The record is a 92-nucleotide sequence from Rotaria sordida, which matches "Small nucleolar RNA snR60/Z15/Z230/Z193/J17" in Rfam. NCBI's taxonomy places the organism under Eukaryota, Spiralia, Rotifera, Eurotatoria, Rotaria. For this family Rfam cites "A computational screen for methylation guide snoRNAs in yeast" (Lowe and Eddy, Science, 1999). The family is grouped with related families in Rfam's "SNORD77 clan". A search with the family's covariance model found it, with a score of 42 bits. The base pairs follow the family's consensus structure. Rfam 15.1 lists 3,592 matches to the family in 1,855 species.
[Rfam]
RNA sequence: AUGCAAAAUUUGAUGAUAUAUAAGUUCAUCGGAACAUCAAUAAUGAAGAGUUCCACUUUAAUGGACACUUUCGCCCCUUUCUGAUUUUGCAC
Numbered sequence: 001a002u003g004c005a006a007a008a009u010u011u012g013a014u015g016a017u018a019u020a021u022a023a024g025u026u027c028a029u030c031g032g033a034a035c036a037u038c039a040a041u042a043a044u045g046a047a048g049a050g051u052u053c054c055a056c057u058u059u060a061a062u063g064g065a066c067a068c069u070u071u072c073g074c075c076c077c078u079u080u081c082u083g084a085u086u087u088u089g090c091a092c
Stems, first nucleotide, its partner, number of pairs: 004089005